The family of this 132-nucleotide RNA is "ALIL pseudoknot". It is annotated as a cis-regulatory element. It scores 78 bits against the family's covariance model. On this family, see Mazauric et al., J Biol Chem 2008: "Apical loop-internal loop RNA pseudoknots: a new type of stimulator of -1 translational frameshifting in bacteria". The family's consensus secondary structure is taken from published work.
RNA sequence: GGCGUUUUUCGCCGCGGCGGAGGUCGACCGCCGACUGCGGUGAUCGUCGAGUACAUCGACGCCUACCGGGACCGUUUCGGGGUCGACCCGAUCUGCACCGUGCUCACCGAGCACGACAUGCCGAUCGCCCCG
Dot-bracket structure: ...............(((((.......))))).............................................(((((......((.((.(((.....................))).)).)))))))